Rfam assigns this 149-nucleotide RNA sequence from Ktedonobacteria bacterium brp13 to the family "ZMP/ZTP riboswitch aptamer (pfl RNA motif)". The match comes from Rfam's covariance-model search (45 bits).

RNA sequence: CGUUUUCCUGAUGACUGGCGAUAUCAGUGGAAUGACCACGAGGAAGUCAGGAAAAAGACCUCUCGGUUGGACAGAAGCGCGUAUAGCUAUACUUAUUGCUAUCUUACGCGACGAUGACAAUCUUACAGUCGCUCGCCUGGGCUGGACUU
Numbered sequence: 001c002g003u004u005u006u007c008c009u010g011a012u013g014a015c016u017g018g019c020g021a022u023a024u025c026a027g028u029g030g031a032a033u034g035a036c037c038a039c040g041a042g043g044a045a046g047u048c049a050g051g052a053a054a055a056a057g058a059c060c061u062c063u064c065g066g067u068u069g070g071a072c073a074g075a076a077g078c079g080c081g082u083a084u085a086g087c088u089a090u091a092c093u094u095a096u097u098g099c100u101a102u103c104u105u106a107c108g109c110g111a112c113g114a115u116g117a118c119a120a121u122c123u124u125a126c127a128g129u130c131g132c133u134c135g136c137c138u139g140g141g142c143u144g145g146a147c148u149u
Base pairs, nucleotide, nucleotide: 003055004054005053006052007051008050009049010048011047012046015043016042017137018136019135020134021133027039028038029037030036126144127143128142129141130140